[Rfam]
RNA sequence: AGUGAGGAUAGAGGUGCAGAGACCAUCAGUAGGUUAUCUAAGGAGAAUGAGCUCCGUUGAAGGUAACUAAAAGGGGAAUUUGCCGAAGUGAGUAGAAUCUCAUCACUCUACACACUGGUUCUGUAUUUAAUAAAUACAGUGCUGUCAUAUAGCAACAUUGCUAUAUGGAGGGCUAUCAUGCAU
Number, nucleotide and partner (000 for none) at each position: 001a000002g000003u000004g000005a000006g000007g177008a176009u175010a174011g173012a000013g000014g000015u000016g083017c082018a081019g080020a079021g000022a000023c076024c075025a000026u000027c000028a000029g000030u000031a000032g068033g067034u066035u065036a064037u063038c062039u061040a000041a000042g000043g000044a000045g000046a000047a000048u000049g000050a000051g000052c000053u000054c000055c000056g000057u000058u000059g000060a000061a039062g038063g037064u036065a035066a034067c033068u032069a000070a000071a000072a000073g000074g000075g024076g023077a000078a000079u020080u019081u018082g017083c016084c000085g000086a000087a116088g115089u114090g113091a000092g111093u110094a109095g108096a107097a000098u105099c000100u000101c000102a000103u000104c000105a098106c000107u096108c095109u094110a093111c092112a000113c090114a089115c088116u087117g143118g142119u141120u000121c139122u138123g137124u136125a135126u134127u133128u000129a000130a000131u000132a000133a127134a126135u125136a124137c123138a122139g121140u000141g119142c118143u117144g000145u168146c167147a166148u165149a164150u163151a162152g000153c000154a000155a000156c000157a000158u000159u000160g000161c000162u151163a150164u149165a148166u147167g146168g145169a000170g000171g000172g000173c011174u010175a009176u008177c007178a000179u000180g000181c000182a000183u000
RNA: Lysine riboswitch aptamer
Organism: Aquibacillus halophilus